[Rfam]
RNA sequence: CUUCAGCGAGCCCAGCCACAACGGCCGGUCGGUGUGUCGUCCUUGGCCGUAGGUGGCCAGCAGCGCCUGUACCUC
Numbered sequence: 001c002u003u004c005a006g007c008g009a010g011c012c013c014a015g016c017c018a019c020a021a022c023g024g025c026c027g028g029u030c031g032g033u034g035u036g037u038c039g040u041c042c043u044u045g046g047c048c049g050u051a052g053g054u055g056g057c058c059a060g061c062a063g064c065g066c067c068u069g070u071a072c073c074u075c
Stems, first nucleotide, its partner, number of pairs: 015025003032070002038065002043060003047056003
Dot-bracket structure: ..............(((.....)))......((....((...(((.(((....))).)))...))...)).....
This 75-nucleotide RNA from Actinacidiphila paucisporea belongs to the Rfam family "ASpks TB sRNA". By type it is an antisense RNA. The organism belongs to Actinacidiphila, within Bacteria.